[Rfam]
RNA sequence: UGGCACCCAAUGUGGGCCUGGAUACUGGGGGCAUCUCGUGAGGGAGACAAUGGAAAAAGGAAGGAGUGCGCUCGUUCAAUUUCGAGUAGUUCGGAGGCACACCGCUGGAGCCUGCCGUGACUGAACCGAAGGUAAGUUGUGCCGUAUGAUCAUUGGACAAGAAUUGAGCCAGCAUCAGAUUUAUGCCAAGCAAUUGAGAGAAGCUCUAAAGACACGAGGAGUAAAGGUUAGGACUGCAGAUUUAUUUCAUUUCUUUGAUUUUGUAAAGGACAUUUGUCCCU
Numbered sequence: 001u002g003g004c005a006c007c008c009a010a011u012g013u014g015g016g017c018c019u020g021g022a023u024a025c026u027g028g029g030g031g032c033a034u035c036u037c038g039u040g041a042g043g044g045a046g047a048c049a050a051u052g053g054a055a056a057a058a059g060g061a062a063g064g065a066g067u068g069c070g071c072u073c074g075u076u077c078a079a080u081u082u083c084g085a086g087u088a089g090u091u092c093g094g095a096g097g098c099a100c101a102c103c104g105c106u107g108g109a110g111c112c113u114g115c116c117g118u119g120a121c122u123g124a125a126c127c128g129a130a131g132g133u134a135a136g137u138u139g140u141g142c143c144g145u146a147u148g149a150u151c152a153u154u155g156g157a158c159a160a161g162a163a164u165u166g167a168g169c170c171a172g173c174a175u176c177a178g179a180u181u182u183a184u185g186c187c188a189a190g191c192a193a194u195u196g197a198g199a200g201a202a203g204c205u206c207u208a209a210a211g212a213c214a215c216g217a218g219g220a221g222u223a224a225a226g227g228u229u230a231g232g233a234c235u236g237c238a239g240a241u242u243u244a245u246u247u248c249a250u251u252u253c254u255u256u257g258a259u260u261u262u263g264u265a266a267a268g269g270a271c272a273u274u275u276g277u278c279c280c281u
Stems, first nucleotide, its partner, number of pairs: 006031003012025003036050001038048002088133001090131001091129002098123002103119003107115001137160004142156003165208002168204002215257007225243005266281001268279004
About this RNA:
A member of the RNA family "Mason-Pfizer monkey virus packaging signal" from Nannospalax galili, 281 nucleotides long. This family represents a group of sequences that are related to the Mason-Pfizer monkey virus (MPMV) packaging signal. Rfam links the family to the GO term viral genome packaging. A reference for the family is Mustafa et al. (2004), "Mutational analysis of the predicted secondary RNA structure of the Mason-Pfizer monkey virus packaging signal", Virus Res. Rfam classes the family as a cis-regulatory element. The family has 9 seed sequences and 2,921 matches in Rfam 15.1.